RNA sequence: GACUAACCAAAUCGCUGGACAAUAGUUAGCAUUCGUGUUGAUCCCGUCCGGUUAGUCCAGUCUAAGCCUUCCGUAGGCUACGUUAUUUAGGUCAUGACACCUUGGGGUGCAAGCCAGCCCUUCGCUCUGUCGCUAAUAGUUAAACAGGUUCAAGUGAUUCUAGAAUACCAGUGCUAUUAGCCUAAAAAGCCUAGAUAACAUUGACGAGGCACACUUUAC
Numbered sequence: 001g002a003c004u005a006a007c008c009a010a011a012u013c014g015c016u017g018g019a020c021a022a023u024a025g026u027u028a029g030c031a032u033u034c035g036u037g038u039u040g041a042u043c044c045c046g047u048c049c050g051g052u053u054a055g056u057c058c059a060g061u062c063u064a065a066g067c068c069u070u071c072c073g074u075a076g077g078c079u080a081c082g083u084u085a086u087u088u089a090g091g092u093c094a095u096g097a098c099a100c101c102u103u104g105g106g107g108u109g110c111a112a113g114c115c116a117g118c119c120c121u122u123c124g125c126u127c128u129g130u131c132g133c134u135a136a137u138a139g140u141u142a143a144a145c146a147g148g149u150u151c152a153a154g155u156g157a158u159u160c161u162a163g164a165a166u167a168c169c170a171g172u173g174c175u176a177u178u179a180g181c182c183u184a185a186a187a188a189g190c191c192u193a194g195a196u197a198a199c200a201u202u203g204a205c206g207a208g209g210c211a212c213a214c215u216u217u218a219c
Stems, first nucleotide, its partner, number of pairs: 001057008010033002014030002019026002034046002037043001060205003064201001065079005082199011097130002101124001104121005109215001113210003132181009144172002147169003151163001
RNA: HNH endonuclease-associated RNA and ORF (HEARO) RNA
Organism: Dactylococcopsis salina